[Rfam]
Rfam assigns this 74-nucleotide RNA sequence from Bacteroides sp. An322 to the family "tRNA".
The family's RNA type in Rfam is transfer RNA.
RNA sequence: GGGGCAUUAGCUCAUCUGGCUAGAGCGCGACACUGGCAGUGUCGAGGUGACGAGUUCGAGUCUCGUAUGCUCCA
Numbered sequence: 001g002g003g004g005c006a007u008u009a010g011c012u013c014a015u016c017u018g019g020c021u022a023g024a025g026c027g028c029g030a031c032a033c034u035g036g037c038a039g040u041g042u043c044g045a046g047g048u049g050a051c052g053a054g055u056u057c058g059a060g061u062c063u064c065g066u067a068u069g070c071u072c073c074a
Base pairs, nucleotide, nucleotide: 001073002072003071004070005069006068007067010026011025012024013023028044029043030042031041032040050066051065052064053063054062